Source information:
A member of the RNA family "Pseudomonas sRNA P18" from Pseudomonas sp. 21C1, 135 nucleotides long. The match comes from Rfam's covariance-model search (65 bits). For this family Rfam cites "Identification of 17 Pseudomonas aeruginosa sRNAs and prediction of sRNA-encoding genes in 10 diverse pathogens using the bioinformatic tool sRNAPredict2" (Livny et al., Nucleic Acids Res, 2006).
RNA sequence: GGCGGCGUGCUGCUCAGCCCCUUGUUGCUGUACGCGCUGCUGGCGUUGCUGCUGACUGGCGUGGUGCGCCUGGCCUUGCAGCGGGUGGGCGCGGCGCGCUGGAUCUGGCACGAGGCGCUGUUCGACUGCGCUCUG
Numbered sequence: 001g002g003c004g005g006c007g008u009g010c011u012g013c014u015c016a017g018c019c020c021c022u023u024g025u026u027g028c029u030g031u032a033c034g035c036g037c038u039g040c041u042g043g044c045g046u047u048g049c050u051g052c053u054g055a056c057u058g059g060c061g062u063g064g065u066g067c068g069c070c071u072g073g074c075c076u077u078g079c080a081g082c083g084g085g086u087g088g089g090c091g092c093g094g095c096g097c098g099c100u101g102g103a104u105c106u107g108g109c110a111c112g113a114g115g116c117g118c119u120g121u122u123c124g125a126c127u128g129c130g131c132u133c134u135g
Base pairs, nucleotide, nucleotide: 002067003066004065006063007062008061009060010059011058012052013051015048016047017046018045019043020042023039068133074096077093078092098131099130102127104125105124108121109120110119